[Rfam]
RNA sequence: UGACCUCGGAUCAGGUAGGAGUACCCGCUGAACUUAAGCAUAUCAAUAAGCGGAGGAAAAGAAACCAACAGGGAUUGCCUCAGUAACGGCGAGUGAAGCGGCAAAAGCUCAAAUUUGAAAUCUGGCUCCAUGCGGAGCCCGAGUUGUAAUUUGGAGAGGACACUUCGGGUGCGGCCACGGCAUAAGUUCCUUGGAACAGGACGUCAUAGAGGGUGAGAAUCCCGUCUUUGGCUGCUGGACCGCGCCCAUGCGAAGUUCCUUCGACGAGUCGAGUUGUUUGGGAAUGCAGCUCUAAGUGGGUGGUAAAUUUCAUCUAAAGCUAAAUAUUGGCCGGAGACCGAUAGCGCACAAGUAGAGUGAUCGAAAGGUUAAAAGCACCUUGAAAAGGGAGUUAAAUAGCACGUGAAAUUGUUGAAAGGGAAG
Numbered sequence: 001u002g003a004c005c006u007c008g009g010a011u012c013a014g015g016u017a018g019g020a021g022u023a024c025c026c027g028c029u030g031a032a033c034u035u036a037a038g039c040a041u042a043u044c045a046a047u048a049a050g051c052g053g054a055g056g057a058a059a060a061g062a063a064a065c066c067a068a069c070a071g072g073g074a075u076u077g078c079c080u081c082a083g084u085a086a087c088g089g090c091g092a093g094u095g096a097a098g099c100g101g102c103a104a105a106a107g108c109u110c111a112a113a114u115u116u117g118a119a120a121u122c123u124g125g126c127u128c129c130a131u132g133c134g135g136a137g138c139c140c141g142a143g144u145u146g147u148a149a150u151u152u153g154g155a156g157a158g159g160a161c162a163c164u165u166c167g168g169g170u171g172c173g174g175c176c177a178c179g180g181c182a183u184a185a186g187u188u189c190c191u192u193g194g195a196a197c198a199g200g201a202c203g204u205c206a207u208a209g210a211g212g213g214u215g216a217g218a219a220u221c222c223c224g225u226c227u228u229u230g231g232c233u234g235c236u237g238g239a240c241c242g243c244g245c246c247c248a249u250g251c252g253a254a255g256u257u258c259c260u261u262c263g264a265c266g267a268g269u270c271g272a273g274u275u276g277u278u279u280g281g282g283a284a285u286g287c288a289g290c291u292c293u294a295a296g297u298g299g300g301u302g303g304u305a306a307a308u309u310u311c312a313u314c315u316a317a318a319g320c321u322a323a324a325u326a327u328u329g330g331c332c333g334g335a336g337a338c339c340g341a342u343a344g345c346g347c348a349c350a351a352g353u354a355g356a357g358u359g360a361u362c363g364a365a366a367g368g369u370u371a372a373a374a375g376c377a378c379c380u381u382g383a384a385a386a387g388g389g390a391g392u393u394a395a396a397u398a399g400c401a402c403g404u405g406a407a408a409u410u411g412u413u414g415a416a417a418g419g420g421a422a423g
Stems, first nucleotide, its partner, number of pairs: 024055001025053005035042002065072002076103004086094002106321004112151004118145002121142002124139004156262002158259003163255004168246007176237002178234004186202001188201004205209001212222002271292007298315005355362002378389004

Shown here is a 423-nucleotide part of an RNA from Coccidioides immitis, a member of the family "Eukaryotic large subunit ribosomal RNA".